[Rfam]
Annotation:
The record is a 70-nucleotide RNA sequence from Camelus dromedarius, which matches "Small nucleolar RNA U2-30" in Rfam. The base pairs follow the family's consensus structure, which is taken from published work. NCBI's taxonomy places the organism under Eukaryota, Eumetazoa, Theria, Camelidae, Camelus. The family's RNA type in Rfam is C/D-box small nucleolar RNA. Rfam links the family to the GO terms nucleolus and RNA processing.

RNA sequence: GAGCAAUGAUGAAAAGCUUUUACUACUGACCAUUAUAACUAUGACAGUUUUUACACUUGAUCCGAGCUCA
Numbered sequence: 001g002a003g004c005a006a007u008g009a010u011g012a013a014a015a016g017c018u019u020u021u022a023c024u025a026c027u028g029a030c031c032a033u034u035a036u037a038a039c040u041a042u043g044a045c046a047g048u049u050u051u052u053a054c055a056c057u058u059g060a061u062c063c064g065a066g067c068u069c070a
Base pairs, nucleotide, nucleotide: 001069002068003067004066013034014033016031018029019028